[Rfam]
RNA sequence: AUCGUUCAUCUCCUCUGAUAUUGACCGGGUGCAUUCCCCCUCAGGCACCCCAGUUAGGAGACGGAAGUAGGGACACUCCCGAAGGAACGCGCC
Numbered sequence: 001a002u003c004g005u006u007c008a009u010c011u012c013c014u015c016u017g018a019u020a021u022u023g024a025c026c027g028g029g030u031g032c033a034u035u036c037c038c039c040c041u042c043a044g045g046c047a048c049c050c051c052a053g054u055u056a057g058g059a060g061a062c063g064g065a066a067g068u069a070g071g072g073a074c075a076c077u078c079c080c081g082a083a084g085g086a087a088c089g090c091g092c093c
Stems, first nucleotide, its partner, number of pairs: 003089005009061005064090001070080003